[Rfam]
RNA sequence: UUCCUGGUGAAAGUCCAGCCUAGGUAAGAGCCAAGUCGCCUCGUAGCUGACAGGCAACUGGUGGAGAAAUCCUAAGGUUGAAGCCCUGUGACAAAGUAACUUCUACUUAGAAGUGCGAGCGAAUCAGCAGACCGUAACAUAA
Numbered sequence: 001u002u003c004c005u006g007g008u009g010a011a012a013g014u015c016c017a018g019c020c021u022a023g024g025u026a027a028g029a030g031c032c033a034a035g036u037c038g039c040c041u042c043g044u045a046g047c048u049g050a051c052a053g054g055c056a057a058c059u060g061g062u063g064g065a066g067a068a069a070u071c072c073u074a075a076g077g078u079u080g081a082a083g084c085c086c087u088g089u090g091a092c093a094a095a096g097u098a099a100c101u102u103c104u105a106c107u108u109a110g111a112a113g114u115g116c117g118a119g120c121g122a123a124u125c126a127g128c129a130g131a132c133c134g135u136a137a138c139a140u141a142a
Stems, first nucleotide, its partner, number of pairs: 020043001022041003050089005055080005064071002096116001100113004119135003
Dot-bracket structure: ...................(.(((..............))).)......((((((((((....((....))....)))))....)))))......(...((((......))))..)..(((...........))).......
RNA: Group II catalytic intron D1-D4-4